[Rfam]
RNA sequence: CUCUUAUCAUGAGCAGGCAGAGGGAUUUGGCCCGAUGAAGCCCAGCAACCGACUGUAAUACCGUUGUGAAACGGGGCGCUAUAUGCGCCGGGAUUUUUCCCGUAAGGCACGGUGCUAAUUCCAACGGAUUGGAAACUUUCCGAGAGAUGAGAG
Numbered sequence: 001c002u003c004u005u006a007u008c009a010u011g012a013g014c015a016g017g018c019a020g021a022g023g024g025a026u027u028u029g030g031c032c033c034g035a036u037g038a039a040g041c042c043c044a045g046c047a048a049c050c051g052a053c054u055g056u057a058a059u060a061c062c063g064u065u066g067u068g069a070a071a072c073g074g075g076g077c078g079c080u081a082u083a084u085g086c087g088c089c090g091g092g093a094u095u096u097u098u099c100c101c102g103u104a105a106g107g108c109a110c111g112g113u114g115c116u117a118a119u120u121c122c123a124a125c126g127g128a129u130u131g132g133a134a135a136c137u138u139u140c141c142g143a144g145a146g147a148u149g150a151g152a153g
Base pairs, nucleotide, nucleotide: 001153002152003151004150005149006148007147008146013043016042017041018040022033023032024031027124028123029122030121044116045115046114047113049112050111051108053106054105120145125142126141127140128139
SAM riboswitch aptamer (S box leader): a 153-nucleotide sequence from Cytobacillus depressus.